[Rfam]
RNA sequence: UUAUUGGAGAGUUUGAUCCUGGCUCAGGACGAACGCUGGCGGCGUGCCUAACACAUGCAAGUCGAACGGAGAUUUCAGCAAUGGAAUCUUAGUGGCGAACGGGUGAGUAACGCGUAGACAACCUACCUUCUAGAUGGGGACAACACUGCGAAAGUGGUGCUAAUACCGAAUGUUGUAUGUGAAACGCCUGUUUCACAUACUAAAGGUGGCCUCUAUUUAUAAGCUACCACUAGAAGAUGGGUCUGCGUCUGAUUAGCUAGUUGGUGAGGUAAUGGCUCACCAAGGCGACGAUCAGUAGCCGGUCUGAGAGGAUGAACGGCCACACUGGGACUGAGACACGGCCCAGACUCCUACGGGAGGCAGCAGUGGGGAAUCUUCCGCAAUGGACGAAAGUCUGACGGAGCAACGCCGCGUGAGUGAAGAAGGUUUUCGGAUCGUAAAACUCUGUUUUCAGGGACGAAUGUGCGAUAUGUGAAUAAUGUGUUGUAAUGACGGUACCUGACAAGAAAGCCACGGCUAACUACGUGCCAGCAGCCGCGGUAAUACGUAGGUGGCAAGCGUUGUCCGGAAUUAUUG
Numbered sequence: 001u002u003a004u005u006g007g008a009g010a011g012u013u014u015g016a017u018c019c020u021g022g023c024u025c026a027g028g029a030c031g032a033a034c035g036c037u038g039g040c041g042g043c044g045u046g047c048c049u050a051a052c053a054c055a056u057g058c059a060a061g062u063c064g065a066a067c068g069g070a071g072a073u074u075u076c077a078g079c080a081a082u083g084g085a086a087u088c089u090u091a092g093u094g095g096c097g098a099a100c101g102g103g104u105g106a107g108u109a110a111c112g113c114g115u116a117g118a119c120a121a122c123c124u125a126c127c128u129u130c131u132a133g134a135u136g137g138g139g140a141c142a143a144c145a146c147u148g149c150g151a152a153a154g155u156g157g158u159g160c161u162a163a164u165a166c167c168g169a170a171u172g173u174u175g176u177a178u179g180u181g182a183a184a185c186g187c188c189u190g191u192u193u194c195a196c197a198u199a200c201u202a203a204a205g206g207u208g209g210c211c212u213c214u215a216u217u218u219a220u221a222a223g224c225u226a227c228c229a230c231u232a233g234a235a236g237a238u239g240g241g242u243c244u245g246c247g248u249c250u251g252a253u254u255a256g257c258u259a260g261u262u263g264g265u266g267a268g269g270u271a272a273u274g275g276c277u278c279a280c281c282a283a284g285g286c287g288a289c290g291a292u293c294a295g296u297a298g299c300c301g302g303u304c305u306g307a308g309a310g311g312a313u314g315a316a317c318g319g320c321c322a323c324a325c326u327g328g329g330a331c332u333g334a335g336a337c338a339c340g341g342c343c344c345a346g347a348c349u350c351c352u353a354c355g356g357g358a359g360g361c362a363g364c365a366g367u368g369g370g371g372a373a374u375c376u377u378c379c380g381c382a383a384u385g386g387a388c389g390a391a392a393g394u395c396u397g398a399c400g401g402a403g404c405a406a407c408g409c410c411g412c413g414u415g416a417g418u419g420a421a422g423a424a425g426g427u428u429u430u431c432g433g434a435u436c437g438u439a440a441a442a443c444u445c446u447g448u449u450u451u452c453a454g455g456g457a458c459g460a461a462u463g464u465g466c467g468a469u470a471u472g473u474g475a476a477u478a479a480u481g482u483g484u485u486g487u488a489a490u491g492a493c494g495g496u497a498c499c500u501g502a503c504a505a506g507a508a509a510g511c512c513a514c515g516g517c518u519a520a521c522u523a524c525g526u527g528c529c530a531g532c533a534g535c536c537g538c539g540g541u542a543a544u545a546c547g548u549a550g551g552u553g554g555c556a557a558g559c560g561u562u563g564u565c566c567g568g569a570a571u572u573a574u575u576g
Stems, first nucleotide, its partner, number of pairs: 009025005027566004032562006039412006045405002047370001052368003056365003061096003066093002069090009103323003112248008122240002127236007135169001137167002144159006175200007183192003205228006249295003256286003261283008298320004302313004325346005348359004376402001378401003384397005415445004425436004449507001451502005459493001465487007510555005521550005531538002
Notes: A member of the RNA family "Bacterial small subunit ribosomal RNA" from Pelosinus sp. UFO1, 576 nucleotides of a longer RNA. The organism belongs to Pelosinus, within Bacteria. The match comes from Rfam's covariance-model search (1602 bits).